[Rfam]
RNA sequence: AUAAAAUUACGCGACUGACGGAUUAGUGGAGUUUACCACAUGAAGCGUAGUUUUCAGAUCACAGUCGACCGUCUGGACAAUAAUU
Numbered sequence: 001a002u003a004a005a006a007u008u009a010c011g012c013g014a015c016u017g018a019c020g021g022a023u024u025a026g027u028g029g030a031g032u033u034u035a036c037c038a039c040a041u042g043a044a045g046c047g048u049a050g051u052u053u054u055c056a057g058a059u060c061a062c063a064g065u066c067g068a069c070c071g072u073c074u075g076g077a078c079a080a081u082a083a084u085u
Stems, first nucleotide, its partner, number of pairs: 003054010015042001017073005026039004064078003
RNA: ZMP/ZTP riboswitch aptamer (pfl RNA motif)
Organism: Sporomusa termitida